[Rfam]
RNA sequence: GAGGUAUCAGGAAAAUACAGGAAGAAACUGAUUUGUUAAUGAAGCAGAUUAGAUCCAAGCCUUCUCUUCGUAAACCUCUCAGCGGUGCU
Numbered sequence: 001g002a003g004g005u006a007u008c009a010g011g012a013a014a015a016u017a018c019a020g021g022a023a024g025a026a027a028c029u030g031a032u033u034u035g036u037u038a039a040u041g042a043a044g045c046a047g048a049u050u051a052g053a054u055c056c057a058a059g060c061c062u063u064c065u066c067u068u069c070g071u072a073a074a075c076c077u078c079u080c081a082g083c084g085g086u087g088c089u
Stems, first nucleotide, its partner, number of pairs: 001080004